[Rfam]
RNA sequence: GGUUGGGCCGAGUGCAGUGGUGUUUACAACUAAUUGAUCACAACCAGCUAUAGACUUCUUUGUUUCUUCUCUAUCUCCUUUGCUUCACUUGACUAGCCUUAA
Numbered sequence: 001g002g003u004u005g006g007g008c009c010g011a012g013u014g015c016a017g018u019g020g021u022g023u024u025u026a027c028a029a030c031u032a033a034u035u036g037a038u039c040a041c042a043a044c045c046a047g048c049u050a051u052a053g054a055c056u057u058c059u060u061u062g063u064u065u066c067u068u069c070u071c072u073a074u075c076u077c078c079u080u081u082g083c084u085u086c087a088c089u090u091g092a093c094u095a096g097c098c099u100u101a102a
Stems, first nucleotide, its partner, number of pairs: 001098006008091001010090002014086001016081002019078002028064003032060002
A member of the RNA family "Y RNA" from Nomascus leucogenys, 102 nucleotides long. Pairs were carried over by alignment from the consensus structure, which is taken from published work. From the family's description: Y RNAs are components of the Ro ribonucleoprotein particle (Ro RNP), in association with Ro60 and La proteins. The Y RNAs and Ro60 and La proteins are well conserved, but the function of the Ro RNP is not known. In humans the RNA component can be one of four small RNAs -- hY1, hY3, hY4 and hY5. These small RNAs are predicted to fold into a conserved secondary structure containing three stem structures.